[Rfam]
RNA sequence: UAUAGACAAAGGCAAGCUUAUCGAAAGAUAAGGGUGAAAAACCAAGGGCCUAAUGCAAUUAUAUUGUUAUGGUAGCUGGUUACCGCA
Numbered sequence: 001u002a003u004a005g006a007c008a009a010a011g012g013c014a015a016g017c018u019u020a021u022c023g024a025a026a027g028a029u030a031a032g033g034g035u036g037a038a039a040a041a042c043c044a045a046g047g048g049c050c051u052a053a054u055g056c057a058a059u060u061a062u063a064u065u066g067u068u069a070u071g072g073u074a075g076c077u078g079g080u081u082a083c084c085g086c087a
Stems, first nucleotide, its partner, number of pairs: 013036001017032006040081004046077002048073003055067004
Record summary: A member of the RNA family "c-di-GMP-I riboswitch aptamer" from Caldisalinibacter kiritimatiensis, 87 nucleotides long. The organism belongs to Caldisalinibacter, within Bacteria. It scores 62 bits against the family's covariance model. The base pairs follow the family's consensus structure, which is taken from published work.